[Rfam]
RNA sequence: UUAUAAGAAACAAUUCACUUUUUACGUUCAUUGAAUAACUGAUGUAUAUGGUCCUUAUUAUAGACCAGAUACAUCAGUUAUUCAAUGAACCUAAAAAGUGAAUUGCUUCUUAUAA
Numbered sequence: 001u002u003a004u005a006a007g008a009a010a011c012a013a014u015u016c017a018c019u020u021u022u023u024a025c026g027u028u029c030a031u032u033g034a035a036u037a038a039c040u041g042a043u044g045u046a047u048a049u050g051g052u053c054c055u056u057a058u059u060a061u062a063g064a065c066c067a068g069a070u071a072c073a074u075c076a077g078u079u080a081u082u083c084a085a086u087g088a089a090c091c092u093a094a095a096a097a098g099u100g101a102a103u104u105g106c107u108u109c110u111u112a113u114a115a
Stems, first nucleotide, its partner, number of pairs: 002114006009107001011105003015101010027089018049067004
The family of this 115-nucleotide RNA sequence from Medicago truncatula is "MIR2593 microRNA precursor family".
Gene Ontology terms of the family: miRNA-mediated post-transcriptional gene silencing and RISC complex.
The organism belongs to Medicago, within Eukaryota.